[Rfam]
This 226-nucleotide RNA sequence from Tetrabaena socialis belongs to the Rfam family "ACEA small nucleolar RNA U3".

RNA sequence: AAGACUAUACUCGAACAGGAUUCGAUGAUGUAGUACUUACACCUGUCUGCGUUCUUCAAACCAGACAAGCUUUUCAACCCAGACGAAGAUAAGAAGCUCCGGCGCCUGAGCGCAACGUAUGGCCGCAGUGGCCGUGUCGCUGACACGGACGCGCGGCUCUGGAUGAACGUCCUGCCGUGCAAUCAUUCCGCCGGCUGGGAUGGCGCACGGGGCAUUCAGAUGGGUU
Dot-bracket structure: .((....((((.....(..(.....)..)..)))).......))....((.(..((......))..).))......(((((..............(((((.(((((...(((........((((((..........................)))))).........))).(.((.(..............).)).)....)))))..))))).......))))).
Numbered sequence: 001a002a003g004a005c006u007a008u009a010c011u012c013g014a015a016c017a018g019g020a021u022u023c024g025a026u027g028a029u030g031u032a033g034u035a036c037u038u039a040c041a042c043c044u045g046u047c048u049g050c051g052u053u054c055u056u057c058a059a060a061c062c063a064g065a066c067a068a069g070c071u072u073u074u075c076a077a078c079c080c081a082g083a084c085g086a087a088g089a090u091a092a093g094a095a096g097c098u099c100c101g102g103c104g105c106c107u108g109a110g111c112g113c114a115a116c117g118u119a120u121g122g123c124c125g126c127a128g129u130g131g132c133c134g135u136g137u138c139g140c141u142g143a144c145a146c147g148g149a150c151g152c153g154c155g156g157c158u159c160u161g162g163a164u165g166a167a168c169g170u171c172c173u174g175c176c177g178u179g180c181a182a183u184c185a186u187u188c189c190g191c192c193g194g195c196u197g198g199g200a201u202g203g204c205g206c207a208c209g210g211g212g213c214a215u216u217c218a219g220a221u222g223g224g225u226u
Stems, first nucleotide, its partner, number of pairs: 002044002008035004017029001020026001049070002052067001055064002077225005096213005102206005110170003121158006172197001174195002177192001
Its family is annotated with nucleolus and RNA processing in the Gene Ontology. The match comes from Rfam's covariance-model search (64 bits). The source organism's lineage runs through Eukaryota, Viridiplantae, Chlorophyceae, Chlamydomonadales and Tetrabaena. Rfam's curators write: Small nucleolar RNAs (snoRNAs) are involved in the processing and modification of rRNA in the nucleolus. There are two main classes of snoRNAs: the box C/D class, and the box H/ACA class.